[Rfam]
A member of the RNA family "Actinobacteria sRNA Ms_IGR-5" from Streptomyces sp. 3213.3, 224 nucleotides long. Pairs were carried over by alignment from the consensus structure.

RNA sequence: ACUUCGGAAAGGAGGUGGUUCGGCAGAUGUAUGAAUACCGGACGGAAGAGGUGACUGCGGGCUAGUGGCCCGCCGUCGUACUCGGUUCGGCGCCGGGCCCGCGUGUGUGAGUUGCGCGCAACCGGCCUAACCCAACGCAGUCACCCGACCCGCGAGCUCGCCGGUACGUCCGGCCGGCUCCCCCGCCGCGAGGCGGAGGGACCUGAGCUCGCGGGUCGUCUGCG
Numbered sequence: 001a002c003u004u005c006g007g008a009a010a011g012g013a014g015g016u017g018g019u020u021c022g023g024c025a026g027a028u029g030u031a032u033g034a035a036u037a038c039c040g041g042a043c044g045g046a047a048g049a050g051g052u053g054a055c056u057g058c059g060g061g062c063u064a065g066u067g068g069c070c071c072g073c074c075g076u077c078g079u080a081c082u083c084g085g086u087u088c089g090g091c092g093c094c095g096g097g098c099c100c101g102c103g104u105g106u107g108u109g110a111g112u113u114g115c116g117c118g119c120a121a122c123c124g125g126c127c128u129a130a131c132c133c134a135a136c137g138c139a140g141u142c143a144c145c146c147g148a149c150c151c152g153c154g155a156g157c158u159c160g161c162c163g164g165u166a167c168g169u170c171c172g173g174c175c176g177g178c179u180c181c182c183c184c185g186c187c188g189c190g191a192g193g194c195g196g197a198g199g200g201a202c203c204u205g206a207g208c209u210c211g212c213g214g215g216u217c218g219u220c221u222g223c224g
Stems, first nucleotide, its partner, number of pairs: 015058005060127004065122002068119002071116003146218013160178006

A reference for the family is Li et al. (2013), "Identification of small RNAs in Mycobacterium smegmatis using heterologous Hfq", RNA.